[Rfam]
RNA sequence: UUACAAAACGGUGAUGGGGUUUGCCAUAACUGCGACAGCUGAUAACUCCUACAUAAGA
Dot-bracket structure: .........[[[[..((((((]]]]......((....))....)))))).........

A member of the RNA family "Fluoride riboswitch aptamer (crcB RNA motif)" from Erysipelothrix rhusiopathiae, 58 nucleotides long. It scores 42 bits against the family's covariance model. The family's consensus secondary structure is taken from published work. A reference for the family is Ren et al. (2012), "Fluoride ion encapsulation by Mg2+ ions and phosphates in a fluoride riboswitch", Nature. Rfam links the family to the GO terms positive regulation of gene expression and response to fluoride.